RNA sequence: AGCUUUCUUGAUUCGUGCUGAAAUUUUGUCAGACACCAACCCGCUGAAUGAUAAGACUUCUAAGAUAAGUGAAGUG
Numbered sequence: 001a002g003c004u005u006u007c008u009u010g011a012u013u014c015g016u017g018c019u020g021a022a023a024u025u026u027u028g029u030c031a032g033a034c035a036c037c038a039a040c041c042c043g044c045u046g047a048a049u050g051a052u053a054a055g056a057c058u059u060c061u062a063a064g065a066u067a068a069g070u071g072a073a074g075u076g
Stems, first nucleotide, its partner, number of pairs: 002075005008069002011066003017060001020059002024056007
Rfam assigns this 76-nucleotide RNA from Schistosoma margrebowiei to the family "mir-3492 microRNA precursor family".
The source organism's lineage runs through Eukaryota, Eumetazoa, Lophotrochozoa, Schistosomatidae and Schistosoma.
Gene Ontology terms of the family: miRNA-mediated post-transcriptional gene silencing and RISC complex.